[Rfam]
RNA sequence: CAACCGUCACAACGGCUUCCUGGCGUGGCGGGUUUUUUCAAUGGAGCA
Number, nucleotide and partner (000 for none) at each position: 001c000002a000003a000004c031005c030006g029007u028008c027009a026010c025011a000012a000013c022014g021015g047016c046017u045018u000019c044020c043021u014022g013023g000024c000025g010026u009027g008028g007029c006030g005031g004032g000033u000034u000035u000036u000037u000038u000039c000040a000041a000042u000043g020044g019045a017046g016047c015048a000

The family of this 48-nucleotide RNA sequence from Maritimibacter sp. HL-12 is "SAM/SAH riboswitch aptamer".
The organism belongs to Maritimibacter, within Bacteria.
Gene Ontology terms of the family: regulation of gene expression and S-adenosylmethionine metabolic process.